Description: Shown here is a 102-nucleotide sequence from Capsicum baccatum, a member of the family "mir-36 microRNA precursor family". Pairs were carried over by alignment from the consensus structure, which was predicted with WAR. Lineage of the source: Eukaryota > Viridiplantae > Streptophytina > Pentapetalae > Capsicum. Clan: mir-36 clan.

[Rfam]
RNA sequence: UUUCACAAUCAUUUGUGAACUUCUCCCGAUUUUCGCCUAGUGAUUUAUUAUUAAUCUACCUAAAUCACUAGGCAAAAAUCGGGAGAAGUUCACAAAAUUGUU
Numbered sequence: 001u002u003u004c005a006c007a008a009u010c011a012u013u014u015g016u017g018a019a020c021u022u023c024u025c026c027c028g029a030u031u032u033u034c035g036c037c038u039a040g041u042g043a044u045u046u047a048u049u050a051u052u053a054a055u056c057u058a059c060c061u062a063a064a065u066c067a068c069u070a071g072g073c074a075a076a077a078a079u080c081g082g083g084a085g086a087a088g089u090u091c092a093c094a095a096a097a098u099u100g101u102u
Stems, first nucleotide, its partner, number of pairs: 016092007024084010035073004040068006